[Rfam]
RNA sequence: CUGGCAGGGGUGGGGUCCCUCAGCCUGUAUUGUGAGAGGGCACAGGCCAGGCUGAGGGACCCCACCAGUGCAUA
Numbered sequence: 001c002u003g004g005c006a007g008g009g010g011u012g013g014g015g016u017c018c019c020u021c022a023g024c025c026u027g028u029a030u031u032g033u034g035a036g037a038g039g040g041c042a043c044a045g046g047c048c049a050g051g052c053u054g055a056g057g058g059a060c061c062c063c064a065c066c067a068g069u070g071c072a073u074a
Stems, first nucleotide, its partner, number of pairs: 004071001006069001009066002012063014027048001030045005
This 74-nucleotide sequence from Cnephaeus nilssonii belongs to the Rfam family "mir-9193 microRNA precursor family".
Pairs were carried over by alignment from the consensus structure, which was predicted with RNAalifold.
Rfam links the family to the GO terms miRNA-mediated post-transcriptional gene silencing and RISC complex.
Taxonomically the source falls in Cnephaeus (Eukaryota, Deuterostomia, Sarcopterygii, Mammalia).